[Rfam]
RNA sequence: AUAAAGGAGCAAUAACCAUUUUCUUGUUCUAGCAAGAGAAUUGGUAUUGCUCCUUUAUUUCG
Numbered sequence: 001a002u003a004a005a006g007g008a009g010c011a012a013u014a015a016c017c018a019u020u021u022u023c024u025u026g027u028u029c030u031a032g033c034a035a036g037a038g039a040a041u042u043g044g045u046a047u048u049g050c051u052c053c054u055u056u057a058u059u060u061c062g
Stems, first nucleotide, its partner, number of pairs: 001058014016043001018041002022037005

Rfam assigns this 62-nucleotide sequence from Gossypium harknessii to the family "Plastid-psbA-2 3UTR RNA". For this family Rfam cites "Retrograde signaling in plants: A critical review focusing on the GUN pathway and beyond" (Richter et al., Plant Commun, 2023). About the family: Plastid psbA-2 is a non-coding RNA (ncRNA) present in plastids. NCBI's taxonomy places the organism under Eukaryota, Embryophyta, Magnoliopsida, Malvoideae, Gossypium. The family's consensus secondary structure was predicted with LocARNA.